The record is a 99-nucleotide RNA from Geotalea uraniireducens, which matches "Bacterial small signal recognition particle RNA" in Rfam. The organism belongs to Geotalea uraniireducens, within Bacteria. It is annotated as a non-coding RNA gene. Its Rfam clan is "SRP clan". Its family is annotated with signal recognition particle, plasma membrane targeting and SRP-dependent cotranslational protein targeting to membrane, signal sequence recognition in the Gene Ontology.

RNA sequence: AGCUGGGCCCCACGCAACGGAAGGUUACGAACUCCGUCAGGUCCGGAAGGAAGCAGCGGCAGUAACUCACACCGUGUGCCGCGGGAUCGCCCAGCUAUC
Numbered sequence: 001a002g003c004u005g006g007g008c009c010c011c012a013c014g015c016a017a018c019g020g021a022a023g024g025u026u027a028c029g030a031a032c033u034c035c036g037u038c039a040g041g042u043c044c045g046g047a048a049g050g051a052a053g054c055a056g057c058g059g060c061a062g063u064a065a066c067u068c069a070c071a072c073c074g075u076g077u078g079c080c081g082c083g084g085g086a087u088c089g090c091c092c093a094g095c096u097a098u099c
Stems, first nucleotide, its partner, number of pairs: 004093005009085003013081002015076001017075004023067006034059004042051003
A reference for the family is Regalia et al. (2002), "Prediction of signal recognition particle RNA genes", Nucleic Acids Res. The match comes from Rfam's covariance-model search (75 bits).